[Rfam]
RNA sequence: UUCUUAUCAAGAGUGACGGAGGGAAUGGCCCAAUGAAGUCCGACAACCAGCAAUAUGAGAUGCAUGUUGUAUGGUGUUAAUUCCAGCAGUUUAACUGACAGAUAAGAA
Numbered sequence: 001u002u003c004u005u006a007u008c009a010a011g012a013g014u015g016a017c018g019g020a021g022g023g024a025a026u027g028g029c030c031c032a033a034u035g036a037a038g039u040c041c042g043a044c045a046a047c048c049a050g051c052a053a054u055a056u057g058a059g060a061u062g063c064a065u066g067u068u069g070u071a072u073g074g075u076g077u078u079a080a081u082u083c084c085a086g087c088a089g090u091u092u093a094a095c096u097g098a099c100a101g102a103u104a105a106g107a108a
Stems, first nucleotide, its partner, number of pairs: 001108008013041001015040003021031003026085003042078004047074002050070007082100001087097004
SAM riboswitch aptamer (S box leader): a 108-nucleotide RNA from Sporolactobacillus laevolacticus. The SAM riboswitch is found upstream of a number of genes which code for proteins involved in methionine or cysteine biosynthesis in Gram-positive bacteria. Its family is annotated with regulation of gene expression in the Gene Ontology.